Shown here is a 147-nucleotide RNA sequence from Zonotrichia albicollis, a member of the family "STAXI RNA". The base pairs follow the family's consensus structure, which is taken from published work. The family's RNA type in Rfam is small RNA.
RNA sequence: UGGUGCCCUUGGGCAUUCCCCAAUCCCUCAGGGGGGUGAAAUGGUGCCCUUGGGCAUUCCCCAAAUCCCUCAGGGGGGUGAAAUGAUGCCCUUGGGCAUUCCCCAAAUCCGCCAGGGGUGGACAUGGUGCCCUUGGGCAUUCCCCAA
Numbered sequence: 001u002g003g004u005g006c007c008c009u010u011g012g013g014c015a016u017u018c019c020c021c022a023a024u025c026c027c028u029c030a031g032g033g034g035g036g037u038g039a040a041a042u043g044g045u046g047c048c049c050u051u052g053g054g055c056a057u058u059c060c061c062c063a064a065a066u067c068c069c070u071c072a073g074g075g076g077g078g079u080g081a082a083a084u085g086a087u088g089c090c091c092u093u094g095g096g097c098a099u100u101c102c103c104c105a106a107a108u109c110c111g112c113c114a115g116g117g118g119u120g121g122a123c124a125u126g127g128u129g130c131c132c133u134u135g136g137g138c139a140u141u142c143c144c145c146a147a
Base pairs, nucleotide, nucleotide: 002017003016004015005014006013007012026044028043031061032060033059034058035057046055047054048053069085073104074103075102076101077100078099088097089096090095109127110126111125115143116142117141118140119139129138130137131136